[Rfam]
Rfam assigns this 177-nucleotide RNA from Cytobacillus depressus to the family "Lysine riboswitch aptamer". The base pairs follow the family's consensus structure, which is taken from published work. The organism belongs to Cytobacillus, within Bacteria.
RNA sequence: CGAUGGGGUAGAGGCUGCGGCUUAUAAGAGUAAAGCGGACGAGAUGUAAUGAGAUUGAUAACUCCGCUUAAAAGGAUAAGCUGCCGAAGUAUGGAUAAAUCAUUGUUUGUCUAUGCUGGGGGAGUUUCCGAAUAGGAACUUCACUGUCACGUAUGAACGUGGAGAGCUAUCUUCGGA
Number, nucleotide and partner (000 for none) at each position: 001c000002g000003a000004u000005g000006g172007g171008g170009u169010a168011g167012a000013g000014g000015c000016u000017g084018c083019g082020g081021c080022u079023u078024a077025u076026a000027a000028g000029a000030g000031u000032a000033a069034a068035g067036c066037g065038g064039a063040c000041g000042a000043g000044a000045u000046g000047u000048a000049a000050u000051g000052a000053g000054a000055u000056u000057g000058a000059u000060a000061a000062c000063u039064c038065c037066g036067c035068u034069u033070a000071a000072a000073a000074g000075g000076a025077u024078a023079a022080g021081c020082u019083g018084c017085c000086g000087a000088a117089g116090u115091a114092u113093g112094g111095a110096u109097a108098a107099a106100u000101c000102a000103u000104u000105g000106u099107u098108u097109g096110u095111c094112u093113a092114u091115g090116c089117u088118g145119g144120g000121g142122g141123a140124g139125u138126u137127u136128c135129c000130g000131a000132a000133u000134a000135g128136g127137a126138a125139c124140u123141u122142c121143a000144c119145u118146g000147u162148c161149a160150c159151g158152u157153a000154u000155g000156a000157a152158c151159g150160u149161g148162g147163a000164g000165a000166g000167c011168u010169a009170u008171c007172u006173u000174c000175g000176g000177a000